[Rfam]
RNA sequence: AACUUAUCAAGAGUGAUACUAGGGACCGGCCCGUUUUGAGUAUCCAGCAACCUGUAUUAACAAGGUGCUAAUUCCGGCAUGUGAAUGCGAAGAUAAGAA
Dot-bracket structure: ..((((((....(.(((....(((.[.[[))).........))))((((.(((((....))).))))))...(]]]((((....))))..)))))))..
This 99-nucleotide RNA sequence from Leptotrichia buccalis belongs to the Rfam family "SAM riboswitch aptamer (S box leader)". It is one of the family's seed sequences. The source organism's lineage runs through Bacteria, Fusobacteriota, Fusobacteriia, Leptotrichia and Leptotrichia buccalis. The SAM riboswitch is found upstream of a number of genes which code for proteins involved in methionine or cysteine biosynthesis in Gram-positive bacteria. The SAM riboswitch acts at the level of transcription termination control. The predicted structure consists of a complex stem-loop region followed by a single stem loop terminator region. An alternative and mutually exclusive form involves bases in the 3' segment of helix 1 with those in the 5' region of helix 5 to form a structure termed the anti-terminator form. This entry represents the conserved core of the complex structure involving helices 1-4. Pairs were carried over by alignment from the consensus structure, which is taken from published work.